[Rfam]
RNA sequence: AUCUGCUGGGGGCGGCAAGAGCGGCGCCUCCAGUUCACGACAGAACAACGUGCCCGGGAAGAACAGGGCACUUCGGGGCGUU
Numbered sequence: 001a002u003c004u005g006c007u008g009g010g011g012g013c014g015g016c017a018a019g020a021g022c023g024g025c026g027c028c029u030c031c032a033g034u035u036c037a038c039g040a041c042a043g044a045a046c047a048a049c050g051u052g053c054c055c056g057g058g059a060a061g062a063a064c065a066g067g068g069c070a071c072u073u074c075g076g077g078g079c080g081u082u
Stems, first nucleotide, its partner, number of pairs: 005034010016023001050071006056064001

Rfam assigns this 82-nucleotide sequence from Streptomyces sulfonofaciens to the family "nrdJ RNA".
The organism belongs to Streptomyces, within Bacteria.
The family's RNA type in Rfam is small RNA.